The family of this 84-nucleotide RNA sequence is "c-di-GMP-II-GAG riboswitch aptamer".
Rfam's curators put it in the seed alignment.
[Rfam]
RNA sequence: CAGUUGGCGGGAGGCUCUGACACGCGGUCCAAACCCGGCCGCCGGGACCGCGCCGAGCCACUGGCGAGACCGACCCGCAGAAUG
Numbered sequence: 001c002a003g004u005u006g007g008c009g010g011g012a013g014g015c016u017c018u019g020a021c022a023c024g025c026g027g028u029c030c031a032a033a034c035c036c037g038g039c040c041g042c043c044g045g046g047a048c049c050g051c052g053c054c055g056a057g058c059c060a061c062u063g064g065c066g067a068g069a070c071c072g073a074c075c076c077g078c079a080g081a082a083u084g
Base pairs, nucleotide, nucleotide: 001084002083004081005080007078008077009076010075011074013059014058015057023052024051025050026049027048028047029046037071038070040066041065042064043063